The record is a 120-nucleotide RNA from Zingiber officinale, which matches "MIR390 microRNA precursor family" in Rfam. Gene Ontology terms of the family: miRNA-mediated post-transcriptional gene silencing and RISC complex. On this family, see Gustafson et al., Nucleic Acids Res 2005: "ASRP: the Arabidopsis Small RNA Project Database". A search with the family's covariance model found it, with a score of 89 bits. The source organism's lineage runs through Eukaryota, Embryophyta, Mesangiospermae, Zingiberaceae and Zingiber.
RNA sequence: ACGGAGAAUCUGUGAAGCUCAGGAGGGAUAGCGCCAUGGGUGACGGUGAACUUAUAAGGAUUUCAGAAAUCCUGUUUUUGCCUGUCGCGCUAUCUAUCCUGAGUUUCAUGGAUUCUUGAU
Numbered sequence: 001a002c003g004g005a006g007a008a009u010c011u012g013u014g015a016a017g018c019u020c021a022g023g024a025g026g027g028a029u030a031g032c033g034c035c036a037u038g039g040g041u042g043a044c045g046g047u048g049a050a051c052u053u054a055u056a057a058g059g060a061u062u063u064c065a066g067a068a069a070u071c072c073u074g075u076u077u078u079u080g081c082c083u084g085u086c087g088c089g090c091u092a093u094c095u096a097u098c099c100u101g102a103g104u105u106u107c108a109u110g111g112a113u114u115c116u117u118g119a120u
Stems, first nucleotide, its partner, number of pairs: 010111001016105009026095009